[Rfam]
RNA sequence: AUUGAUUUAUUUUGUUUCAGAAUCCGAACGCUUUGCCGUUGUGUUAAAGUAAAAGGUAAAGCGUAGGAAUUCUAAAUCAAAACGAAA
Numbered sequence: 001a002u003u004g005a006u007u008u009a010u011u012u013u014g015u016u017u018c019a020g021a022a023u024c025c026g027a028a029c030g031c032u033u034u035g036c037c038g039u040u041g042u043g044u045u046a047a048a049g050u051a052a053a054a055g056g057u058a059a060a061g062c063g064u065a066g067g068a069a070u071u072c073u074a075a076a077u078c079a080a081a082a083c084g085a086a087a
Stems, first nucleotide, its partner, number of pairs: 010081003014078001016076002019073003023069001025067001028064007036056002